Shown here is a 190-nucleotide RNA from Okeania sp. KiyG1, a member of the family "Ribosomal protein L10 leader".
A reference for the family is Yakhnin et al. (2015), "Ribosomal protein L10(L12)4 autoregulates expression of the Bacillus subtilis rplJL operon by a transcription attenuation mechanism", Nucleic Acids Res.
Rfam classes the family as a cis-regulatory leader.
Taxonomically the source falls in Okeania (Bacteria, Cyanobacteriota, Oscillatoriales, Microcoleaceae).
Gene Ontology term of the family: regulation of gene expression.
[Rfam]
RNA sequence: AAAAUCAAAAUCAAAGAGCUGAAGACAGUAGGUGCUAAGAGCUUAAUUUCCUGCCGAGGUUCAAGAAUUAACUAUUCAAAAACAGGUAUUAAGGGAUUUUUGUCAAAAUCUCUACUAAAUUACUUGUUUUGGAUUCAUAAUUCUUUGCCCUGGCAGAUAGUAUAGUCCGCCAGGGUUUUUGGUUUGUCAA
Numbered sequence: 001a002a003a004a005u006c007a008a009a010a011u012c013a014a015a016g017a018g019c020u021g022a023a024g025a026c027a028g029u030a031g032g033u034g035c036u037a038a039g040a041g042c043u044u045a046a047u048u049u050c051c052u053g054c055c056g057a058g059g060u061u062c063a064a065g066a067a068u069u070a071a072c073u074a075u076u077c078a079a080a081a082a083c084a085g086g087u088a089u090u091a092a093g094g095g096a097u098u099u100u101u102g103u104c105a106a107a108a109u110c111u112c113u114a115c116u117a118a119a120u121u122a123c124u125u126g127u128u129u130u131g132g133a134u135u136c137a138u139a140a141u142u143c144u145u146u147g148c149c150c151u152g153g154c155a156g157a158u159a160g161u162a163u164a165g166u167c168c169g170c171c172a173g174g175g176u177u178u179u180u181g182g183u184u185u186g187u188c189a190a
Base pairs, nucleotide, nucleotide: 028054029053030052031051032050034042035041036040148175149174150173151172152171153170154169156167157166
Dot-bracket structure: ...........................(((((.(((...))).......))))).............................................................................................(((((((.((........)).)))))))...............